[Rfam]
RNA sequence: ACCCGCCGACGGCCGACCCAGCAACGACACGGACGGGAGCGGGGGAACCAGGUAAGCGCCUGGCUUCGCGCUCCCGUGCGCGCGGUCCGGCUAGGGGUGAAGCCGCUCCCACAGGCGGCCGGGCUACUCGGCCCGAACCCGACAGCUCACCUCGCAGGCGUCGUAGAGGACCCUG
Numbered sequence: 001a002c003c004c005g006c007c008g009a010c011g012g013c014c015g016a017c018c019c020a021g022c023a024a025c026g027a028c029a030c031g032g033a034c035g036g037g038a039g040c041g042g043g044g045g046a047a048c049c050a051g052g053u054a055a056g057c058g059c060c061u062g063g064c065u066u067c068g069c070g071c072u073c074c075c076g077u078g079c080g081c082g083c084g085g086u087c088c089g090g091c092u093a094g095g096g097g098u099g100a101a102g103c104c105g106c107u108c109c110c111a112c113a114g115g116c117g118g119c120c121g122g123g124c125u126a127c128u129c130g131g132c133c134c135g136a137a138c139c140c141g142a143c144a145g146c147u148c149a150c151c152u153c154g155c156a157g158g159c160g161u162c163g164u165a166g167a168g169g170a171c172c173c174u175g
Stems, first nucleotide, its partner, number of pairs: 004160004013036003039155006049094001095140003103118004121134004
The record is a 175-nucleotide RNA sequence from Streptomyces tateyamensis, which matches "c-di-AMP riboswitch aptamer (ydaO/yuaA leader)" in Rfam.